Source information
Rfam assigns this 104-nucleotide sequence from Durio zibethinus to the family "Small nucleolar RNA snoR31/Z110/Z27". About the family: This family contains several related snoRNAs including R31, Z27 and Z110. The family has 8 seed sequences and 571 matches in Rfam 15.1.

[Rfam]
Nucleotides: 104
Base pairs, nucleotide, nucleotide: 001104002103003102004101005100006099007098042057
Number, partner (000 for none) and nucleotide at each position: 001104g002103u003102c004101a005100u006099c007098a008000a009000g010000u011000g012000a013000u014000g015000a016000a017000a018000u019000u020000g021000g022000a023000a024000a025000a026000a027000u028000c029000u030000u031000a032000g033000g034000a035000c036000a037000c038000c039000u040000u041000c042057c043000u044000a045000c046000a047000u048000a049000g050000c051000u052000u053000u054000a055000a056000u057042g058000u059000u060000a061000u062000u063000u064000a065000a066000a067000g068000c069000u070000a071000u072000g073000g074000a075000u076000g077000a078000g079000a080000a081000g082000a083000a084000c085000a086000u087000u088000u089000c090000c091000u092000u093000u094000c095000u096000g097000a098007u099006g100005a101004u102003g103002a104001c
The match comes from Rfam's covariance-model search (54 bits).
The source organism's lineage runs through Eukaryota, Magnoliopsida, rosids, Malvaceae and Durio.
The family's RNA type in Rfam is C/D-box small nucleolar RNA.